A member of the RNA family "Small nucleolar RNA snoR99" from Amborella trichopoda, 101 nucleotides long. The family's consensus secondary structure was predicted with WAR. By type it is an H/ACA-box small nucleolar RNA. Its family is annotated with nucleolus and RNA processing in the Gene Ontology. The match comes from Rfam's covariance-model search (72 bits). For this family Rfam cites "Experimental RNomics: identification of 140 candidates for small non-messenger RNAs in the plant Arabidopsis thaliana" (Marker et al., Curr Biol, 2002).

RNA sequence: GUGCCUCAGGGAUGAAUCGGUCCCUGAUAUUUAAUCCCAUUAGCUUCACUUUGUCAGCGAUGCUCUCUUUGUCUUCUCUGAUCAUUCAGAAUGGGAAAAUC
Numbered sequence: 001g002u003g004c005c006u007c008a009g010g011g012a013u014g015a016a017u018c019g020g021u022c023c024c025u026g027a028u029a030u031u032u033a034a035u036c037c038c039a040u041u042a043g044c045u046u047c048a049c050u051u052u053g054u055c056a057g058c059g060a061u062g063c064u065c066u067c068u069u070u071g072u073c074u075u076c077u078c079u080g081a082u083c084a085u086u087c088a089g090a091a092u093g094g095g096a097a098a099a100u101c
Base pairs, nucleotide, nucleotide: 036095037094038093039092040091041090053082054081055080056079057078059076060075